[Rfam]
RNA: small nucleolar RNA snoR134
Organism: Chenopodium quinoa
RNA sequence: ACGCACUAGCUUACCCCGGGCUUCUCUGAAAAACUUUCAAUCUGAAGAUGCUAAAGCCCCAAAGCCGGUGCUACAGUUUCCGCCGUUCGUGUUGCAGUUCUGCCGCUUCUUCACGGCUUUCCUGUGUCUAAGUAACGGCUACAUCU
Numbered sequence: 001a002c003g004c005a006c007u008a009g010c011u012u013a014c015c016c017c018g019g020g021c022u023u024c025u026c027u028g029a030a031a032a033a034c035u036u037u038c039a040a041u042c043u044g045a046a047g048a049u050g051c052u053a054a055a056g057c058c059c060c061a062a063a064g065c066c067g068g069u070g071c072u073a074c075a076g077u078u079u080c081c082g083c084c085g086u087u088c089g090u091g092u093u094g095c096a097g098u099u100c101u102g103c104c105g106c107u108u109c110u111u112c113a114c115g116g117c118u119u120u121c122c123u124g125u126g127u128c129u130a131a132g133u134a135a136c137g138g139c140u141a142c143a144u145c146u
Base pairs, nucleotide, nucleotide: 003071004070005069006068007067009065010064018059019058020057021056022055023053024050025048026047027046082139083138084137085136086135087134091128093126094125095124096123097122102117103116104115